Fluoride riboswitch aptamer (crcB RNA motif): a 62-nucleotide RNA from Megasphaera cerevisiae. The source organism's lineage runs through Bacteria, Bacillati, Negativicutes, Veillonellaceae and Megasphaera cerevisiae. It scores 42 bits against the family's covariance model.
[Rfam]
RNA sequence: AAUUUCAUAGGCGAUGGAGUUCGCCUGUACAUGACUAUCGUGUUGAUGACUCCUACCUUUUA
Numbered sequence: 001a002a003u004u005u006c007a008u009a010g011g012c013g014a015u016g017g018a019g020u021u022c023g024c025c026u027g028u029a030c031a032u033g034a035c036u037a038u039c040g041u042g043u044u045g046a047u048g049a050c051u052c053c054u055a056c057c058u059u060u061u062a
Base pairs, nucleotide, nucleotide: 010025011024012023013022016053017052018051019050020049021048